Rfam assigns this 72-nucleotide sequence from Gossypium trilobum to the family "Small nucleolar RNA Z105". On this family, see Chen et al., Nucleic Acids Res 2003: "The high diversity of snoRNAs in plants: identification and comparative study of 120 snoRNA genes from Oryza sativa". It scores 51 bits against the family's covariance model. Rfam links the family to the GO terms RNA processing and nucleolus. Lineage of the source: Eukaryota > Streptophytina > Tracheophyta > Spermatophyta > Gossypium.
RNA sequence: GAGGCAUAAUGAGGAAGAAGUAACAAAAAAUCUGACUUAUUGUGAUGAUGAAUCACCUCCUACUCAUUCUGA
Dot-bracket structure: .....((.(......................(...(.......).....).............).)).....